[Rfam]
Description:
This 106-nucleotide sequence from Leersia perrieri belongs to the Rfam family "MIR398 microRNA precursor family". Rfam links the family to the GO terms RISC complex and miRNA-mediated post-transcriptional gene silencing. The organism belongs to Leersia, within Eukaryota.
RNA sequence: GGAGCUCCUGCAGGGACGAGCUGGGAACACACGAGAUGGAUAAAUGUUGGCUGCUGGAGAGCCUGUCUUAGUUCGUGUGUUCUCAGGUCGCCCCUGUUGGUGCUCU
Numbered sequence: 001g002g003a004g005c006u007c008c009u010g011c012a013g014g015g016a017c018g019a020g021c022u023g024g025g026a027a028c029a030c031a032c033g034a035g036a037u038g039g040a041u042a043a044a045u046g047u048u049g050g051c052u053g054c055u056g057g058a059g060a061g062c063c064u065g066u067c068u069u070a071g072u073u074c075g076u077g078u079g080u081u082c083u084c085a086g087g088u089c090g091c092c093c094c095u096g097u098u099g100g101u102g103c104u105c106u
Stems, first nucleotide, its partner, number of pairs: 007100002011096004017090003023084010